[Rfam]
Shown here is an 86-nucleotide RNA sequence from Hevea brasiliensis, a member of the family "mir-160 microRNA precursor family". A search with the family's covariance model found it, with a score of 76 bits. Gene Ontology terms of the family: miRNA-mediated post-transcriptional gene silencing and RISC complex. For this family Rfam cites "Prediction of plant microRNA targets" (Rhoades et al., Cell, 2002). Taxonomically the source falls in Hevea (Eukaryota, Streptophytina, Embryophyta, Tracheophyta).
RNA sequence: GUGUGCCUGGCUCCCUGUAUGCCAUCUGCAAAGCUCAUCAGAAAGUCGGUGGCCUCCGCAGUUGGCAUGCGAGGAGCCAUGCAUGC
Numbered sequence: 001g002u003g004u005g006c007c008u009g010g011c012u013c014c015c016u017g018u019a020u021g022c023c024a025u026c027u028g029c030a031a032a033g034c035u036c037a038u039c040a041g042a043a044a045g046u047c048g049g050u051g052g053c054c055u056c057c058g059c060a061g062u063u064g065g066c067a068u069g070c071g072a073g074g075a076g077c078c079a080u081g082c083a084u085g086c
Stems, first nucleotide, its partner, number of pairs: 001086006008079007016071009027060003